RNA: Small nucleolar RNA SNORD34
Organism: Gossypium gossypioides
RNA sequence: CGAGGCUUAUGAUGAUUAAGAAUUGCCUACAUUGUCAGAUCAUUUCUUUGAUGACAAUAAAAGUAACAAAUCUGAGGCCUUA
Number, nucleotide and partner (000 for none) at each position: 001c000002g081003a000004g079005g078006c077007u076008u000009a000010u000011g000012a000013u000014g000015a000016u000017u000018a000019a000020g000021a000022a000023u000024u000025g000026c000027c000028u000029a000030c000031a000032u000033u000034g000035u000036c000037a000038g000039a000040u000041c000042a000043u000044u000045u000046c000047u000048u000049u000050g000051a000052u000053g000054a000055c000056a000057a000058u000059a000060a000061a000062a000063g000064u000065a000066a000067c000068a000069a000070a000071u000072c000073u000074g000075a000076g007077g006078c005079c004080u000081u002082a000